This 81-nucleotide RNA sequence from Sinocyclocheilus rhinocerous belongs to the Rfam family "let-7 microRNA precursor family".
The family's consensus secondary structure was predicted with RNAalifold.

[Rfam]
RNA sequence: UAAAGCUGAGGUAGUAGAUUGAAUAGUUGUGGAGUAUAAAACUCCCUUUGAGAUAACUAUACAAUCUACUGUCUUUCUUAC
Numbered sequence: 001u002a003a004a005g006c007u008g009a010g011g012u013a014g015u016a017g018a019u020u021g022a023a024u025a026g027u028u029g030u031g032g033a034g035u036a037u038a039a040a041a042c043u044c045c046c047u048u049u050g051a052g053a054u055a056a057c058u059a060u061a062c063a064a065u066c067u068a069c070u071g072u073c074u075u076u077c078u079u080a081c
Stems, first nucleotide, its partner, number of pairs: 003079003008075014023060005032044004046052002
Its family is annotated with RISC complex and miRNA-mediated post-transcriptional gene silencing in the Gene Ontology. The match comes from Rfam's covariance-model search (66 bits). Clan: let-7 microRNA precursor clan. This family represents the microRNAs (miRNA) let-7 and mir-98. let-7 was identified from a study of developmental timing in C. elegans, and was later shown to be part of a much larger class of non-coding RNAs termed miRNAs.